The family of this 126-nucleotide sequence from Marinobacterium lutimaris is "RtT RNA". Rfam's curators write: This family represents a bacterial cis-regulatory element known as RtT RNA. The exact function of RtT is unknown although it is thought that it may be involved in changing the cellular response in relation to amino acid starvation. Taxonomically the source falls in Marinobacterium (Bacteria, Pseudomonadota, Gammaproteobacteria, Oceanospirillales). Gene Ontology term of the family: cellular response to amino acid starvation. Pairs were carried over by alignment from the consensus structure, which is taken from published work.

RNA sequence: AGCAUUCCUACGCCUGGCGGGUGAGAACCCCCGAUAGGGAUUCGAGCCGAGCGAAGCGAGACAGCGUUGCCGCAGGCAACGACCCGCAGGGCGAGGCGUAGCCGAGUAAUCCCUCCAGCUCCAUUU
Numbered sequence: 001a002g003c004a005u006u007c008c009u010a011c012g013c014c015u016g017g018c019g020g021g022u023g024a025g026a027a028c029c030c031c032c033g034a035u036a037g038g039g040a041u042u043c044g045a046g047c048c049g050a051g052c053g054a055a056g057c058g059a060g061a062c063a064g065c066g067u068u069g070c071c072g073c074a075g076g077c078a079a080c081g082a083c084c085c086g087c088a089g090g091g092c093g094a095g096g097c098g099u100a101g102c103c104g105a106g107u108a109a110u111c112c113c114u115c116c117a118g119c120u121c122c123a124u125u126u
Base pairs, nucleotide, nucleotide: 015117016116017115019113020112021111022109032093033092035091041088043086044085048058049057065081066080067079068078069077070076